[Rfam]
The record is a 414-nucleotide sequence from Candidatus Sulfobium mesophilum, which matches "Bacterial RNase P class A" in Rfam.
RNA sequence: GAAGUAGAACAGGUGGUCGCCCGCCCUUGAGGCGGGAGGAAAGUCCGAGCUCCAUAGGGCAAGGCGCUCUGUAACACAGAGUCCCGGUGACGGGAAGGAAAGUGCCACAGAAAGGGAAACCGCCCAUCAGGUAUGGGUAAGGGUGAAAAGGUGUCCCCAUCGGGGGAUUCCCGGCGUUUGCCGGGAAAGGUAAGAGCUCACCAGUGUCCCGGGUGACCGGGGCAGCUAGGAAAACCCCGCCUGGAGCAAGGCCAAAUAGGUUCCGCUUUGAGAGGGGCCCCUUCAAAUCCCUGUUAAUUGACGGGAUAGCGGAACGGGUUAGGCCGCAAGACUUCGCUAUGAACGCGGGGCAGAGAUGAAUGACCAUGACCCGAUUAACGGGGAACAGAACUCGGCUUAUGGUCUGCUUCGGCA
Numbered sequence: 001g002a003a004g005u006a007g008a009a010c011a012g013g014u015g016g017u018c019g020c021c022c023g024c025c026c027u028u029g030a031g032g033c034g035g036g037a038g039g040a041a042a043g044u045c046c047g048a049g050c051u052c053c054a055u056a057g058g059g060c061a062a063g064g065c066g067c068u069c070u071g072u073a074a075c076a077c078a079g080a081g082u083c084c085c086g087g088u089g090a091c092g093g094g095a096a097g098g099a100a101a102g103u104g105c106c107a108c109a110g111a112a113a114g115g116g117a118a119a120c121c122g123c124c125c126a127u128c129a130g131g132u133a134u135g136g137g138u139a140a141g142g143g144u145g146a147a148a149a150g151g152u153g154u155c156c157c158c159a160u161c162g163g164g165g166g167a168u169u170c171c172c173g174g175c176g177u178u179u180g181c182c183g184g185g186a187a188a189g190g191u192a193a194g195a196g197c198u199c200a201c202c203a204g205u206g207u208c209c210c211g212g213g214u215g216a217c218c219g220g221g222g223c224a225g226c227u228a229g230g231a232a233a234a235c236c237c238c239g240c241c242u243g244g245a246g247c248a249a250g251g252c253c254a255a256a257u258a259g260g261u262u263c264c265g266c267u268u269u270g271a272g273a274g275g276g277g278c279c280c281c282u283u284c285a286a287a288u289c290c291c292u293g294u295u296a297a298u299u300g301a302c303g304g305g306a307u308a309g310c311g312g313a314a315c316g317g318g319u320u321a322g323g324c325c326g327c328a329a330g331a332c333u334u335c336g337c338u339a340u341g342a343a344c345g346c347g348g349g350g351c352a353g354a355g356a357u358g359a360a361u362g363a364c365c366a367u368g369a370c371c372c373g374a375u376u377a378a379c380g381g382g383g384a385a386c387a388g389a390a391c392u393c394g395g396c397u398u399a400u401g402g403u404c405u406g407c408u409u410c411g412g413c414a
Stems, first nucleotide, its partner, number of pairs: 001410008010401002013367006020036006041398003045395005050246004059302001062242005067081005082096001083094004097237002102235002105230002120142002122138006150202004204226001205224008250325004260315006295308002298305002332350006338343001
The family's consensus secondary structure is taken from published work. Rfam describes the family as follows. Ribonuclease P (RNase P) is a ubiquitous endoribonuclease, found in archaea, bacteria and eukarya as well as chloroplasts and mitochondria. By type it is a ribozyme.